[Rfam]
Purine riboswitch aptamer: a 99-nucleotide sequence from Erysipelotrichaceae bacterium 5_2_54FAA. The base pairs follow the family's consensus structure, which is taken from published work.
RNA sequence: UGUGAUAAAAUGUCAUAGUUUCGUAUACGUCUGCCGGUAUGGGGCAGAUGUUUCUACCCCAAUCCAUACUUUGGGACUACGAAAUCAGACGUUUUUACU
Numbered sequence: 001u002g003u004g005a006u007a008a009a010a011u012g013u014c015a016u017a018g019u020u021u022c023g024u025a026u027a028c029g030u031c032u033g034c035c036g037g038u039a040u041g042g043g044g045c046a047g048a049u050g051u052u053u054c055u056a057c058c059c060c061a062a063u064c065c066a067u068a069c070u071u072u073g074g075g076a077c078u079a080c081g082a083a084a085u086c087a088g089a090c091g092u093u094u095u096u097a098c099u
Base pairs, nucleotide, nucleotide: 018085019084020083021082022081023080024079025078029049030048031047032046033045034044035043058075059074060073061072062071